[Rfam]
RNA sequence: AGGGCGGUCAAUAGCGCGGGCCUGGCGGAGCGCGGCAACGCGCGGAGAUCGCGAGGCGACCGGGGCCAGCUGGGCCCCCGGCGGCGCGCCCCUCGGCCCAGCCGGGAGCCGCGCCAGUCGGAGCCCCUGGCCGAGGGCGGCCAGCCAGCUUCUCAGCGCCCAUCCCUCCGGAGAGCAGCCGGGGGGCAUGACCGACCCACCAGGGGCGCCGCCGCCGGCGCUCGCAGGCCGCGGGUGAAGAAGAAAGUCCGUACCCGCUCGGCCCGGAGCGAGGAGGCGCCACGAGACGAGGAGGCGCCCCAGAUCGAGGAGGCGCCCCCGGCCGAGGAGGUGACCCCAGACGUGAUCCAGGCGGAGGAGGUGACCGAGACCGAGGAAAUG
Numbered sequence: 001a002g003g004g005c006g007g008u009c010a011a012u013a014g015c016g017c018g019g020g021c022c023u024g025g026c027g028g029a030g031c032g033c034g035g036c037a038a039c040g041c042g043c044g045g046a047g048a049u050c051g052c053g054a055g056g057c058g059a060c061c062g063g064g065g066c067c068a069g070c071u072g073g074g075c076c077c078c079c080g081g082c083g084g085c086g087c088g089c090c091c092c093u094c095g096g097c098c099c100a101g102c103c104g105g106g107a108g109c110c111g112c113g114c115c116a117g118u119c120g121g122a123g124c125c126c127c128u129g130g131c132c133g134a135g136g137g138c139g140g141c142c143a144g145c146c147a148g149c150u151u152c153u154c155a156g157c158g159c160c161c162a163u164c165c166c167u168c169c170g171g172a173g174a175g176c177a178g179c180c181g182g183g184g185g186g187c188a189u190g191a192c193c194g195a196c197c198c199a200c201c202a203g204g205g206g207c208g209c210c211g212c213c214g215c216c217g218g219c220g221c222u223c224g225c226a227g228g229c230c231g232c233g234g235g236u237g238a239a240g241a242a243g244a245a246a247g248u249c250c251g252u253a254c255c256c257g258c259u260c261g262g263c264c265c266g267g268a269g270c271g272a273g274g275a276g277g278c279g280c281c282a283c284g285a286g287a288c289g290a291g292g293a294g295g296c297g298c299c300c301c302a303g304a305u306c307g308a309g310g311a312g313g314c315g316c317c318c319c320c321g322g323c324c325g326a327g328g329a330g331g332u333g334a335c336c337c338c339a340g341a342c343g344u345g346a347u348c349c350a351g352g353c354g355g356a357g358g359a360g361g362u363g364a365c366c367g368a369g370a371c372c373g374a375g376g377a378a379a380u381g
Base pairs, nucleotide, nucleotide: 019103020102021101024098025097026096040089041088042052043051044050045049060081061080062079063078064077065076067074144362145361146360149357167186168185169184204223205222206221207220208219209218210217211216256271257270258269259268260267
This 381-nucleotide RNA sequence from Oryctolagus cuniculus belongs to the Rfam family "Bag-1 internal ribosome entry site (IRES)".
Lineage of the source: Eukaryota > Metazoa > Gnathostomata > Boreoeutheria > Oryctolagus.
Its family is annotated with ribosome binding in the Gene Ontology.
Rfam describes the family as follows. This family represents the bag-1 internal ribosome entry site (IRES). When expressed the BAG-1 protein is known to enhance the anti-apoptotic properties of Bcl-2. Although bag-1 translation usually occurs via a cap-dependent mechanism it has been found to contain a IRES in its 5' UTR. Translation via the IRES has been found to be common following heat shock when cap-dependent scanning is compromised.
A reference for the family is Coldwell et al. (2001), "The p36 isoform of BAG-1 is translated by internal ribosome entry following heat shock", Oncogene.